RNA sequence: GGUCAUGCUUUUCCACAGCUUUCUUGAACUUCCUUGCCAUGCUUAACUUGUGUGUGUGUGUGUGUGUGUGUGUAGAUCACUAUAUAUCUGUAUAGUUAUACACAUUUAGCUAGCUAGCACCAUGGAAGCUCAAGAAAGCCGUGGGAGAACAUGGCAA
Dot-bracket structure: ..(((((.....(((..(((((.((((.(((((..........................................................................................))))).)))).)))))..))).....)))))...